mir-124 microRNA precursor family: a 72-nucleotide RNA sequence from Saccoglossus kowalevskii. Rfam links the family to the GO terms miRNA-mediated post-transcriptional gene silencing and RISC complex. For this family Rfam cites "The microRNAs of Caenorhabditis elegans" (Lim et al., Genes Dev, 2003). Taxonomically the source falls in Saccoglossus (Eukaryota, Metazoa, Bilateria, Enteropneusta). The family's consensus secondary structure was predicted with PFOLD. The family has 122 seed sequences and 2,215 matches in Rfam 15.1.
[Rfam]
RNA sequence: UGUUCUAAGUGUUCACAGCGGUCCUUGAUGUUCCACACAACGCAAUUAAGGCACGCGGUGAAUGCCAAGAAC
Number, nucleotide and partner (000 for none) at each position: 001u000002g000003u071004u070005c069006u068007a000008a000009g065010u064011g063012u062013u061014c060015a059016c058017a000018g056019c055020g054021g000022u000023c051024c050025u049026u048027g047028a046029u045030g000031u000032u000033c000034c000035a000036c000037a000038c000039a000040a000041c000042g000043c000044a000045a029046u028047u027048a026049a025050g024051g023052c000053a000054c020055g019056c018057g000058g016059u015060g014061a013062a012063u011064g010065c009066c000067a000068a006069g005070a004071a003072c000